The family of this 215-nucleotide RNA sequence from Pelomedusa subrufa is "Small nucleolar RNA SNORA73 family".
RNA sequence: CCAACAUGGUCCUCCAUUGAGGUUACUCAUGGCUCUGUCCAAGUGGCAUAUGGAGGCAUAGCCCUAAGUGCAGUGAUGCACAAUACCCUUCCAUAGUUGGAAGAGCAAACCUAUCUCUGGCUCUACAACUGAUGAAGUCAGAAUCCUGUAUAUUCCUAAAACUUCUCAUAGUCUUUAGGUGAUUACUGAGGCGAAAAACCAUGCAGGAUGUAAUU
Dot-bracket structure: .(.(.((((.(..(((.((((....)))))))....).))..((((.....((.((..((((..........))..))..)..).))...)))).))).)............................................(((((((..........(.((((...(((....))).......)))).).......)))))))........

Annotation:
Rfam 15.1 lists 2,326 matches to the family in 660 species. Rfam's curators write: U17 (SNORA73A and SNORA73B) also known as E1 belongs to the H/ACA class of small nucleolar RNAs (snoRNAs). Vertebrate U17 is intron-encoded and ranges in length from 200-230 nucleotides, longer than most snoRNAs. It is one of the most abundant snoRNAs in human cells and is essential for the cleavage of pre-rRNA within the 5' external transcribed spacer (ETS). This cleavage leads to the formation of 18S rRNA. Regions of the U17 RNA are complementary to rRNA and act as guides for RNA/RNA interactions, although these regions do not seem to be well conserved between organisms. A reference for the family is Enright et al. (1996), "5'ETS rRNA processing facilitated by four small RNAs: U14, E3, U17, and U3", RNA.